The family of this 310-nucleotide RNA from Nelumbo nucifera is "Plant signal recognition particle RNA".
It is annotated as a non-coding RNA gene.
RNA sequence: GCCGAGCUCUAUAGCGAGAGCUUGUAACCCGAGCGGGGGCACCAAGGUGGUCAAACGUUGGUUCAAUUCCGACCGGCAGGAUUAGGUUAGAGUAAUUUGUUGGCACGCCCGUUCCAAGUAGGGAGUUGAGCCACGAGACUUGAGCGAAAGCUUGGUUUUCAUGGGUUCUUAGAGAGGAGGGGACCGCGUCAGGCUGGUUUCACAGAGCCAGCGACAACCUCCUGCUCCCGUCGGUGGAAGGAUUACGAGCCGGUACUCCCCUCAUCCACACAUUGCCCUAGGGGUCGAGUCCAAUUGGACGAUCACCUUU
Numbered sequence: 001g002c003c004g005a006g007c008u009c010u011a012u013a014g015c016g017a018g019a020g021c022u023u024g025u026a027a028c029c030c031g032a033g034c035g036g037g038g039g040c041a042c043c044a045a046g047g048u049g050g051u052c053a054a055a056c057g058u059u060g061g062u063u064c065a066a067u068u069c070c071g072a073c074c075g076g077c078a079g080g081a082u083u084a085g086g087u088u089a090g091a092g093u094a095a096u097u098u099g100u101u102g103g104c105a106c107g108c109c110c111g112u113u114c115c116a117a118g119u120a121g122g123g124a125g126u127u128g129a130g131c132c133a134c135g136a137g138a139c140u141u142g143a144g145c146g147a148a149a150g151c152u153u154g155g156u157u158u159u160c161a162u163g164g165g166u167u168c169u170u171a172g173a174g175a176g177g178a179g180g181g182g183a184c185c186g187c188g189u190c191a192g193g194c195u196g197g198u199u200u201c202a203c204a205g206a207g208c209c210a211g212c213g214a215c216a217a218c219c220u221c222c223u224g225c226u227c228c229c230g231u232c233g234g235u236g237g238a239a240g241g242a243u244u245a246c247g248a249g250c251c252g253g254u255a256c257u258c259c260c261c262u263c264a265u266c267c268a269c270a271c272a273u274u275g276c277c278c279u280a281g282g283g284g285u286c287g288a289g290u291c292c293a294a295u296u297g298g299a300c301g302a303u304c305a306c307c308u309u310u
Stems, first nucleotide, its partner, number of pairs: 001040003004023007028037003044309009056297002058294003061290004066285001068283003072279001075277004079267004084262003090258003095254001100253005106247002109241002112239005118232001121229006128168003131164003135160004140155006169174001175223006187213003194205003